[Rfam]
Shown here is a 125-nucleotide sequence, a member of the family "LOOT RNA". Rfam classes the family as a small RNA.

RNA sequence: AGCCUAACCCACAACUUUUAUAGAGGUGGCAUGGUUAAGAAAACGCGUAAACCAUACUGAUCCCGUCGUUCAGGUUCGUUUACGCGUCAUGGAGGGAAACUUUCAUGGGGCCUGUAAUAAGGUCU
Numbered sequence: 001a002g003c004c005u006a007a008c009c010c011a012c013a014a015c016u017u018u019u020a021u022a023g024a025g026g027u028g029g030c031a032u033g034g035u036u037a038a039g040a041a042a043a044c045g046c047g048u049a050a051a052c053c054a055u056a057c058u059g060a061u062c063c064c065g066u067c068g069u070u071c072a073g074g075u076u077c078g079u080u081u082a083c084g085c086g087u088c089a090u091g092g093a094g095g096g097a098a099a100c101u102u103u104c105a106u107g108g109g110g111c112c113u114g115u116a117a118u119a120a121g122g123u124c125u
Base pairs, nucleotide, nucleotide: 001036002035003034004033009029010028011027012026015023044086045085046084047083048082049081050080051079052078054076057073058072059071060070062068088107089106090105091104092103093102094101095100108125109124110123111122112121113120